[Rfam]
RNA: MIR827 microRNA precursor family
Organism: Dichanthelium oligosanthes
RNA sequence: ACUUGUUUUGUUGGUGGUCACCUAACCAUGCUCCAGUCAGUGCAACCAUGUAUCUCCGGUGAUCUGAUCAUAUGCGUGCGUGCGCAUGCAUGGUUAGAUGACCAUCAGCAAACAUGUU
Numbered sequence: 001a002c003u004u005g006u007u008u009u010g011u012u013g014g015u016g017g018u019c020a021c022c023u024a025a026c027c028a029u030g031c032u033c034c035a036g037u038c039a040g041u042g043c044a045a046c047c048a049u050g051u052a053u054c055u056c057c058g059g060u061g062a063u064c065u066g067a068u069c070a071u072a073u074g075c076g077u078g079c080g081u082g083c084g085c086a087u088g089c090a091u092g093g094u095u096a097g098a099u100g101a102c103c104a105u106c107a108g109c110a111a112a113c114a115u116g117u118u
Base pairs, nucleotide, nucleotide: 005113006112007111008110010109011108012107013106014105015104016103017102018101019100020099022097023096024095025094026093027092028091029090030089031088